[Rfam]
RNA: Small nucleolar RNA snoR77
RNA sequence: AGGCAGCCCCCUUGCGAAUAUUCAAAUGACAGGGGAGGUGUUUCCCUACUCAGAAAUUAGAUCUUCUGCUCUUCAGACUUGCUGAGAGCCUGAGAUGAUUUGUAAUACUUUCUGAAGCUGGUCUAGUAAGCUCAAGUAGAGU
Number, nucleotide and partner (000 for none) at each position: 001a000002g042003g041004c040005a039006g000007c038008c037009c035010c034011c033012u032013u031014g030015c000016g000017a027018a000019u000020a000021u000022u000023c000024a000025a000026a000027u017028g000029a000030c014031a013032g012033g011034g010035g009036a000037g008038g007039u005040g004041u003042u002043u000044c000045c000046c000047u000048a000049c000050u000051c000052a000053g000054a000055a000056a000057u000058u000059a000060g000061a000062u000063c136064u135065u134066c000067u000068g131069c130070u129071c000072u000073u000074c000075a124076g123077a122078c121079u120080u000081g118082c117083u116084g000085a000086g110087a109088g108089c000090c000091u000092g000093a000094g000095a000096u000097g000098a000099u000100u000101u000102g000103u000104a000105a000106u000107a000108c088109u087110u086111u000112c000113u000114g000115a000116a083117g082118c081119u000120g079121g078122u077123c076124u075125a000126g000127u000128a000129a070130g069131c068132u000133c000134a065135a064136g063137u000138a000139g000140a000141g000142u000